[Rfam]
RNA: Bacillus asRNA 0872
Organism: Bacillus licheniformis
RNA sequence: AUUGAGCGGCAGCUUCGACAUUGAUCAGACCUUUCCCAUAGUAGAAGGAGCUUCCCAAAUAAGUCGCCGUGCUGGAGAGACGGUUGCGGACUUGUGAAGCUGAAAGGUUCGGAUGUUUUGACAAGAUCAAAGCUGCUGCUCCCG
Numbered sequence: 001a002u003u004g005a006g007c008g009g010c011a012g013c014u015u016c017g018a019c020a021u022u023g024a025u026c027a028g029a030c031c032u033u034u035c036c037c038a039u040a041g042u043a044g045a046a047g048g049a050g051c052u053u054c055c056c057a058a059a060u061a062a063g064u065c066g067c068c069g070u071g072c073u074g075g076a077g078a079g080a081c082g083g084u085u086g087c088g089g090a091c092u093u094g095u096g097a098a099g100c101u102g103a104a105a106g107g108u109u110c111g112g113a114u115g116u117u118u119u120g121a122c123a124a125g126a127u128c129a130a131a132g133c134u135g136c137u138g139c140u141c142c143c144g
Stems, first nucleotide, its partner, number of pairs: 004141012017128002021124003025121003028109008049101006059095007066084005072079002